[Rfam]
RNA sequence: GCAUCUGAAUCUUUCCCGCUCCUUGCUGUGAGGUGCAGGCCCGGGGACAUGUGAUGCUAAAGCAAUGCAGAGGAAAUCCAGGCAAGUUUAUGUUCUCUUACAAGAGACUUGCCUCUACAACUCUGUAACAUUU
Numbered sequence: 001g002c003a004u005c006u007g008a009a010u011c012u013u014u015c016c017c018g019c020u021c022c023u024u025g026c027u028g029u030g031a032g033g034u035g036c037a038g039g040c041c042c043g044g045g046g047a048c049a050u051g052u053g054a055u056g057c058u059a060a061a062g063c064a065a066u067g068c069a070g071a072g073g074a075a076a077u078c079c080a081g082g083c084a085a086g087u088u089u090a091u092g093u094u095c096u097c098u099u100a101c102a103a104g105a106g107a108c109u110u111g112c113c114u115c116u117a118c119a120a121c122u123c124u125g126u127a128a129c130a131u132u133u
Stems, first nucleotide, its partner, number of pairs: 001057005013047006021039002067126006080114008094105003

Annotation: The family of this 133-nucleotide RNA sequence from Podarcis lilfordi is "Small nucleolar RNA SNORA55". ACA55 is a member of the H/ACA class of snoRNA that guide the sites of modification of uridines to pseudouridines. Pairs were carried over by alignment from the consensus structure, which was predicted with PFOLD. Rfam links the family to the GO terms RNA processing and nucleolus.